[Rfam]
RNA sequence: UAUCCCUAUGAGGAAUUAAUCCGAAGAAAUAAAUUAAUAGUGGAUCAAUUUAUUUCCAUUGAGGACUAUCCAAUUCCGAGGGAUU
Numbered sequence: 001u002a003u004c005c006c007u008a009u010g011a012g013g014a015a016u017u018a019a020u021c022c023g024a025a026g027a028a029a030u031a032a033a034u035u036a037a038u039a040g041u042g043g044a045u046c047a048a049u050u051u052a053u054u055u056c057c058a059u060u061g062a063g064g065a066c067u068a069u070c071c072a073a074u075u076c077c078g079a080g081g082g083a084u085u
Base pairs, nucleotide, nucleotide: 002084003083004082005081006080

About this RNA
A member of the RNA family "Small nucleolar RNA R21" from Gossypium raimondii, 85 nucleotides long. Gene Ontology terms of the family: RNA processing and nucleolus. Pairs were carried over by alignment from the consensus structure, which was predicted with PFOLD. Rfam 15.1 lists 472 matches to the family in 146 species. On this family, see Barneche et al., J Mol Biol 2001: "Identification of 66 box C/D snoRNAs in Arabidopsis thaliana: extensive gene duplications generated multiple isoforms predicting new ribosomal RNA 2'-O-methylation sites". Rfam classes the family as a C/D-box small nucleolar RNA.